[Rfam]
RNA sequence: ACGGUGUUCCGCUGCAAUGAUGAAGAAAGCAUUGUCAUGAACAUCUG
Numbered sequence: 001a002c003g004g005u006g007u008u009c010c011g012c013u014g015c016a017a018u019g020a021u022g023a024a025g026a027a028a029g030c031a032u033u034g035u036c037a038u039g040a041a042c043a044u045c046u047g
Stems, first nucleotide, its partner, number of pairs: 003045007013037002015034004
Description
This 47-nucleotide sequence from Thermaerobacillus caldiproteolyticus belongs to the Rfam family "Ribosomal protein L19 leader". The match comes from Rfam's covariance-model search (40 bits). Taxonomically the source falls in Thermaerobacillus (Bacteria, Bacillati, Bacilli, Caryophanales). For this family Rfam cites "Diverse mechanisms for regulating ribosomal protein synthesis in Escherichia coli" (Zengel and Lindahl, Prog Nucleic Acid Res Mol Biol, 1994). Rfam classes the family as a cis-regulatory leader. Rfam's curators write: This family is a putative r-protein leader autoregulatory structure found in B. subtilis and other low-GC Gram-positive bacteria.